[Rfam]
RNA: MIR2617 microRNA precursor family
Organism: Medicago truncatula
RNA sequence: UUGCAAUGUAGCAUGCCCGUUGUGAAAUUACUCUGAUGUAUUUAUGCUAUUUUACUGCUUUUGGGUAACGGGGUGUUACAACCGUA
Numbered sequence: 001u002u003g004c005a006a007u008g009u010a011g012c013a014u015g016c017c018c019g020u021u022g023u024g025a026a027a028u029u030a031c032u033c034u035g036a037u038g039u040a041u042u043u044a045u046g047c048u049a050u051u052u053u054a055c056u057g058c059u060u061u062u063g064g065g066u067a068a069c070g071g072g073g074u075g076u077u078a079c080a081a082c083c084g085u086a
Base pairs, nucleotide, nucleotide: 002086003085004084007080008079009078010077011076012075013074014073016072017071018070019069020068021067